[Rfam]
RNA sequence: UGGGCUGACCGGGCGAUCGCGGCUUGCGCUGAGUUUUCUCAAGCGGGAGGCGAGGAAAGUCCGGGCUCCACAGGGCAGGGUGAUGGUUAACAGCCAUCCGGGGUGACCCGCGGGAAAGUGCCACAGAAAAGAGACCGCCUCGGCAACGAGGUAAGGGUGAAACGGUGAGGUAAGAGCUCACCAGCCCCUCGGGUGACCGAGGGGGCUCGGCAAACCCCACCUGGAGCAAGUUCAGACAGGACGCGCUGAGGGCUGCCCGCCCAAGCGUCCGGGUAGAGCGCUGGAGGGCGCCGGCAACGGCGUUCGUAGAUGGAUGAUCGCUGCGCAGCGUGCUGCGUACAGAACCCGGCUUACAGGUCAGCCCGUCCG
Numbered sequence: 001u002g003g004g005c006u007g008a009c010c011g012g013g014c015g016a017u018c019g020c021g022g023c024u025u026g027c028g029c030u031g032a033g034u035u036u037u038c039u040c041a042a043g044c045g046g047g048a049g050g051c052g053a054g055g056a057a058a059g060u061c062c063g064g065g066c067u068c069c070a071c072a073g074g075g076c077a078g079g080g081u082g083a084u085g086g087u088u089a090a091c092a093g094c095c096a097u098c099c100g101g102g103g104u105g106a107c108c109c110g111c112g113g114g115a116a117a118g119u120g121c122c123a124c125a126g127a128a129a130a131g132a133g134a135c136c137g138c139c140u141c142g143g144c145a146a147c148g149a150g151g152u153a154a155g156g157g158u159g160a161a162a163c164g165g166u167g168a169g170g171u172a173a174g175a176g177c178u179c180a181c182c183a184g185c186c187c188c189u190c191g192g193g194u195g196a197c198c199g200a201g202g203g204g205g206c207u208c209g210g211c212a213a214a215c216c217c218c219a220c221c222u223g224g225a226g227c228a229a230g231u232u233c234a235g236a237c238a239g240g241a242c243g244c245g246c247u248g249a250g251g252g253c254u255g256c257c258c259g260c261c262c263a264a265g266c267g268u269c270c271g272g273g274u275a276g277a278g279c280g281c282u283g284g285a286g287g288g289c290g291c292c293g294g295c296a297a298c299g300g301c302g303u304u305c306g307u308a309g310a311u312g313g314a315u316g317a318u319c320g321c322u323g324c325g326c327a328g329c330g331u332g333c334u335g336c337g338u339a340c341a342g343a344a345c346c347c348g349g350c351u352u353a354c355a356g357g358u359c360a361g362c363c364c365g366u367c368c369g
Stems, first nucleotide, its partner, number of pairs: 001365010011354001012322007020052002023049003027045004057352003061349005066226004073258004078222005083097005098112001099110004113217002118215002120211003135156002137152006164182006184206001185204008230279004239270006250262004286305008
RNA: Bacterial RNase P class A